[Rfam]
RNA: Pseudomonas sRNA P10
Organism: Pseudomonas sp. M47T1
RNA sequence: CGUCACCGACCCUACUGCUUGCCCGUUAUCGGGGCAUGGCGUCAACCCAAUUGCCUCGGGCUCGCCCGACGU
Numbered sequence: 001c002g003u004c005a006c007c008g009a010c011c012c013u014a015c016u017g018c019u020u021g022c023c024c025g026u027u028a029u030c031g032g033g034g035c036a037u038g039g040c041g042u043c044a045a046c047c048c049a050a051u052u053g054c055c056u057c058g059g060g061c062u063c064g065c066c067c068g069a070c071g072u
Stems, first nucleotide, its partner, number of pairs: 007071002017040003020036002023033002051069003056064001